[Rfam]
RNA sequence: GCCACGCCUAGUUCGACGGGGCAAAAAGCGGGAUACCCUCUGAUCUCGCCUGGCGUGGUUUCUUCUUUCAUAAGAGG
Numbered sequence: 001g002c003c004a005c006g007c008c009u010a011g012u013u014c015g016a017c018g019g020g021g022c023a024a025a026a027a028g029c030g031g032g033a034u035a036c037c038c039u040c041u042g043a044u045c046u047c048g049c050c051u052g053g054c055g056u057g058g059u060u061u062c063u064u065c066u067u068u069c070a071u072a073a074g075a076g077g
Base pairs, nucleotide, nucleotide: 001059002058003057004056005055006054007053008052011022012021013020014019028049029048030047031046032045036077037076039074041072